[Rfam]
RNA: mir-7398 microRNA precursor family
Organism: Vombatus ursinus
RNA sequence: CUCGUAGAGACAAGAAAGUUACUGUGUUUUGUCAGGUAAUUUUCUUAUCUCUCGAAGC
Dot-bracket structure: .(((.(((((.((((((...(((...........)))...)))))).))))))))...
Numbered sequence: 001c002u003c004g005u006a007g008a009g010a011c012a013a014g015a016a017a018g019u020u021a022c023u024g025u026g027u028u029u030u031g032u033c034a035g036g037u038a039a040u041u042u043u044c045u046u047a048u049c050u051c052u053c054g055a056a057g058c
Stems, first nucleotide, its partner, number of pairs: 002055003006052005012046006021037003